This 48-nucleotide RNA sequence from Steroidobacter agaridevorans belongs to the Rfam family "Guanidine-II riboswitch aptamer (mini-ykkC)". Simpler in structure and has fewer highly conserved nucleotide positions than the ykkC-yxkD leader. Despite this each of its two stem-loop structures directly bind free guanidine. Therefore, mini-ykkC RNA motif represents a distinct class of guanidine-sensing RNAs. Its crystal structure was also determined. A search with the family's covariance model found it, with a score of 44 bits. Lineage of the source: Bacteria > Pseudomonadota > Gammaproteobacteria > Steroidobacteraceae > Steroidobacter.
RNA sequence: CGGUGGGGACGACCCCAUCGCGCUUCUCAUCUUCCGGGGACGACCCCU
Numbered sequence: 001c002g003g004u005g006g007g008g009a010c011g012a013c014c015c016c017a018u019c020g021c022g023c024u025u026c027u028c029a030u031c032u033u034c035c036g037g038g039g040a041c042g043a044c045c046c047c048u
Base pairs, nucleotide, nucleotide: 001020002019003018004017005016006015007014008013036047037046038045039044